Shown here is a 124-nucleotide RNA from Myotis myotis, a member of the family "Small nucleolar RNA ACA64". Pairs were carried over by alignment from the consensus structure, which was predicted with WAR. The source organism's lineage runs through Eukaryota, Deuterostomia, Gnathostomata, Tetrapoda and Myotis. The literature on the family includes a 2006 paper in RNA by Schattner et al., "A computational screen for mammalian pseudouridylation guide H/ACA RNAs". Rfam classes the family as an H/ACA-box small nucleolar RNA.
RNA sequence: GUUGGUUGAAAAUCACCUGUGACUUUGGCCAUGGCCAUGGGUGAGAGUCGGCACCCAAAGCCAUGUGGGGCUUCAGCUCACAGUCCACUCGAUGUGGGGAGGUGAAACCCAGGCCCCGUCACGC
Numbered sequence: 001g002u003u004g005g006u007u008g009a010a011a012a013u014c015a016c017c018u019g020u021g022a023c024u025u026u027g028g029c030c031a032u033g034g035c036c037a038u039g040g041g042u043g044a045g046a047g048u049c050g051g052c053a054c055c056c057a058a059a060g061c062c063a064u065g066u067g068g069g070g071c072u073u074c075a076g077c078u079c080a081c082a083g084u085c086c087a088c089u090c091g092a093u094g095u096g097g098g099g100a101g102g103u104g105a106a107a108c109c110c111a112g113g114c115c116c117c118g119u120c121a122c123g124c
Stems, first nucleotide, its partner, number of pairs: 005052005013044004021036001023034002067117001069115005078105004086096003